[Rfam]
RNA sequence: GAAAUCCUCUCAGGUAAUACCUAACCAGUAGCCUGUACCUAGUCCUUGGAACCGAAAUGGUAACAUUAGGUUUAAGCGUAGGACGGGGAGCAAACGAGCCGAAAUGAAAGUGAAGCUAUUGAGCCACGAAAUCAUUAUCUAAAUGAAGAGGUCGAUACUGUCCUUACGGUAGCAGACAACAUCAUACAAAUCGUAAUGGUGAGACUUGCAUGACUCUUCCGGGGUCUGAGGGCU
Numbered sequence: 001g002a003a004a005u006c007c008u009c010u011c012a013g014g015u016a017a018u019a020c021c022u023a024a025c026c027a028g029u030a031g032c033c034u035g036u037a038c039c040u041a042g043u044c045c046u047u048g049g050a051a052c053c054g055a056a057a058u059g060g061u062a063a064c065a066u067u068a069g070g071u072u073u074a075a076g077c078g079u080a081g082g083a084c085g086g087g088g089a090g091c092a093a094a095c096g097a098g099c100c101g102a103a104a105u106g107a108a109a110g111u112g113a114a115g116c117u118a119u120u121g122a123g124c125c126a127c128g129a130a131a132u133c134a135u136u137a138u139c140u141a142a143a144u145g146a147a148g149a150g151g152u153c154g155a156u157a158c159u160g161u162c163c164u165u166a167c168g169g170u171a172g173c174a175g176a177c178a179a180c181a182u183c184a185u186a187c188a189a190a191u192c193g194u195a196a197u198g199g200u201g202a203g204a205c206u207u208g209c210a211u212g213a214c215u216c217u218u219c220c221g222g223g224g225u226c227u228g229a230g231g232g233c234u
Stems, first nucleotide, its partner, number of pairs: 011035004018030003022202001024200002038087002042084001044082003047078002049073005055067001057066003120228001121226001123225003127221002145219006151177003156171004182213004187208003191204002
Rfam assigns this 234-nucleotide RNA sequence from Desulfotruncus arcticus to the family "Group II catalytic intron D1-D4-6". The match comes from Rfam's covariance-model search (139 bits). Gene Ontology term of the family: Group II intron splicing. The base pairs follow the family's consensus structure. The family has 174 seed sequences and 1,617 matches in Rfam 15.1. A reference for the family is Chu et al. (2001), "Control of branch-site choice by a group II intron", EMBO J.